RNA sequence: AAAAUUAAGGUUAAAAGAUCCCAUAUAAUCCCCUUAAUAUGCAGGGGGAGUCUCUACCAGGGGAGCAAAAAUCCACUGAUUAUGGGUGUAUCUUCAGGAUAG
Number, nucleotide and partner (000 for none) at each position: 001a000002a000003a000004a000005u000006u000007a000008a000009g000010g000011u000012u000013a000014a000015a000016a000017g000018a000019u000020c086021c085022c084023a083024u082025a081026u000027a000028a000029u049030c048031c047032c046033c045034u044035u043036a000037a000038u000039a000040u000041g000042c000043a035044g034045g033046g032047g031048g030049a029050g000051u000052c000053u000054c000055u000056a000057c000058c078059a077060g076061g000062g074063g073064a072065g000066c000067a000068a000069a000070a000071a000072u064073c063074c062075a000076c060077u059078g058079a000080u000081u025082a024083u023084g022085g021086g020087u000088g000089u000090a000091u000092c000093u000094u000095c000096a000097g000098g000099a000100u000101a000102g000
About this RNA:
Rfam assigns this 102-nucleotide RNA sequence from Propionigenium maris to the family "Purine riboswitch aptamer". Rfam links the family to the GO term purine nucleobase biosynthetic process. Taxonomically the source falls in Propionigenium maris (Bacteria, Fusobacteriati, Fusobacteriales, Fusobacteriaceae).